[Rfam]
RNA sequence: AAGCAAAGCCUUCAAAUCUCCAACUAUUUCUGUACCUCUUUACCGGUUUUAAACCAACUUCUACCAAAAUGUCUCCCUGCUCCUGCAACUGCUGCUCUGGCAACUGCGCCAGCUGCUCUUGCUCCUCCUGCAGCGUGAGUAUCC
Numbered sequence: 001a002a003g004c005a006a007a008g009c010c011u012u013c014a015a016a017u018c019u020c021c022a023a024c025u026a027u028u029u030c031u032g033u034a035c036c037u038c039u040u041u042a043c044c045g046g047u048u049u050u051a052a053a054c055c056a057a058c059u060u061c062u063a064c065c066a067a068a069a070u071g072u073c074u075c076c077c078u079g080c081u082c083c084u085g086c087a088a089c090u091g092c093u094g095c096u097c098u099g100g101c102a103a104c105u106g107c108g109c110c111a112g113c114u115g116c117u118c119u120u121g122c123u124c125c126u127c128c129u130g131c132a133g134c135g136u137g138a139g140u141a142u143c144c
Base pairs, nucleotide, nucleotide: 078102079101080100081099085095086094087093106131107130108129115122116121
The family of this 144-nucleotide RNA from Aspergillus sclerotiicarbonarius is "A. fumigatus sRNA Afu_254". A search with the family's covariance model found it, with a score of 85 bits. The family has 6 seed sequences and 185 matches in Rfam 15.1. The literature on the family includes a 2008 paper in Nucleic Acids Res by Jochl et al., "Small ncRNA transcriptome analysis from Aspergillus fumigatus suggests a novel mechanism for regulation of protein synthesis". The family's consensus secondary structure was predicted with WAR. It is annotated as a small RNA.